[Rfam]
RNA sequence: CUAUUUCCCUCAUUAGCUGGAUUCCUUCCCCUCACAUUGUUAUAGGUCAAAACACCCUGCCGACACACGGCAUAACAACAGGCGAUCCAUCACGUCGCUAUAACGUGCACCCAGGGAGACACACAGCAAUGCAGCA
Dot-bracket structure: .........(...(....(((.....)))........(((.................(((((.....)))))........((((((.......))))))...))).........))....................
Record summary:
Rfam assigns this 136-nucleotide sequence from Buttiauxella ferragutiae to the family "opuB ncRNA motif". The base pairs follow the family's consensus structure, which is taken from published work. The source organism's lineage runs through Bacteria, Gammaproteobacteria, Enterobacterales, Buttiauxella and Buttiauxella ferragutiae. From the family's description: opuB ncRNA motif was reported as a strong cis regulatory motif candidate, with potential to be a cis regulatory riboswitch type, it have been identified in mostly from species of Enterobacteriaceae. The literature on the family includes a 2024 paper in Nucleic Acids Res by Narunsky et al., "The discovery of novel noncoding RNAs in 50 bacterial genomes".